Background:
Mammalian CPEB3 ribozyme: a 76-nucleotide sequence from Parnassius apollo. The family's consensus secondary structure is taken from published work. A search with the family's covariance model found it, with a score of 39 bits.

RNA sequence: AUAGAGAACCGGAAACAAUUGUAGAAGCGUGCUCGUCGCGACUCCUGCCAGCCCUUUUCAGGGCUGCAAUUCUACA
Numbered sequence: 001a002u003a004g005a006g007a008a009c010c011g012g013a014a015a016c017a018a019u020u021g022u023a024g025a026a027g028c029g030u031g032c033u034c035g036u037c038g039c040g041a042c043u044c045c046u047g048c049c050a051g052c053c054c055u056u057u058u059c060a061g062g063g064c065u066g067c068a069a070u071u072c073u074a075c076a
Stems, first nucleotide, its partner, number of pairs: 011045003016040001020076007027039003049066007